Rfam assigns this 101-nucleotide RNA from Kurthia sp. 11kri321 to the family "RNA Staph. aureus E (RoxS)". The match comes from Rfam's covariance-model search (83 bits). From the family's description: It was shown to be regulated by the presence of nitric oxide (NO).
[Rfam]
RNA sequence: GUGAAAUAAAUCACAAACAAACAUACACCCCUUUGUUUGAACGUGAACAUUUCUCCCAUCCCCUUUGUGAAAAUGAGCGCUCUCGUAGAGUCGCUCAUUUU
Number, nucleotide and partner (000 for none) at each position: 001g000002u000003g053004a052005a051006a050007u049008a000009a000010a000011u046012c045013a044014c043015a000016a000017a000018c039019a038020a037021a036022c035023a034024u000025a000026c000027a000028c000029c000030c000031c000032u000033u000034u023035g022036u021037u020038u019039g018040a000041a000042c000043g014044u013045g012046a011047a000048c000049a007050u006051u005052u004053c003054u000055c000056c000057c000058a000059u000060c000061c000062c000063c000064u000065u000066u000067g000068u000069g000070a000071a000072a000073a098074u097075g096076a095077g094078c093079g092080c090081u089082c088083u087084c000085g000086u000087a083088g082089a081090g080091u000092c079093g078094c077095u076096c075097a074098u073099u000100u000101u000